The record is an 84-nucleotide RNA sequence from Aotus nancymaae, which matches "mir-548 microRNA precursor family" in Rfam.
It scores 90 bits against the family's covariance model.
Its family is annotated with RISC complex and miRNA-mediated post-transcriptional gene silencing in the Gene Ontology.
Taxonomically the source falls in Aotus (Eukaryota, Metazoa, Euteleostomi, Aotidae).
RNA sequence: CAUUUGGUUGGUACAGAAGUAAUUGUGGGUUUUGCCAUUAGAAGUAAUGGCAAAACCCACAAUUACUUUUGCACCAACCUAAUA
Numbered sequence: 001c002a003u004u005u006g007g008u009u010g011g012u013a014c015a016g017a018a019g020u021a022a023u024u025g026u027g028g029g030u031u032u033u034g035c036c037a038u039u040a041g042a043a044g045u046a047a048u049g050g051c052a053a054a055a056c057c058c059a060c061a062a063u064u065a066c067u068u069u070u071g072c073a074c075c076a077a078c079c080u081a082a083u084a
Stems, first nucleotide, its partner, number of pairs: 002083003006079007014071027